The record is a 105-nucleotide RNA from Treponema denticola, which matches "TD-2 RNA" in Rfam. Rfam classes the family as a small RNA. Lineage of the source: Bacteria > Pseudomonadati > Treponemataceae > Treponema > Treponema denticola.
RNA sequence: GUUUUGCUUUUGCAAAACUACAUACAAUAAUGCGAUGUUUUGUGCUUUGCACAAAACUCGAAGAUAAACAGUGAGGUAGUAUUUCUACCGAGCUGUUUAUCAUAA
Numbered sequence: 001g002u003u004u005u006g007c008u009u010u011u012g013c014a015a016a017a018c019u020a021c022a023u024a025c026a027a028u029a030a031u032g033c034g035a036u037g038u039u040u041u042g043u044g045c046u047u048u049g050c051a052c053a054a055a056a057c058u059c060g061a062a063g064a065u066a067a068a069c070a071g072u073g074a075g076g077u078a079g080u081a082u083u084u085c086u087a088c089c090g091a092g093c094u095g096u097u098u099a100u101c102a103u104a105a
Stems, first nucleotide, its partner, number of pairs: 001018006033060003037057008063101010075089004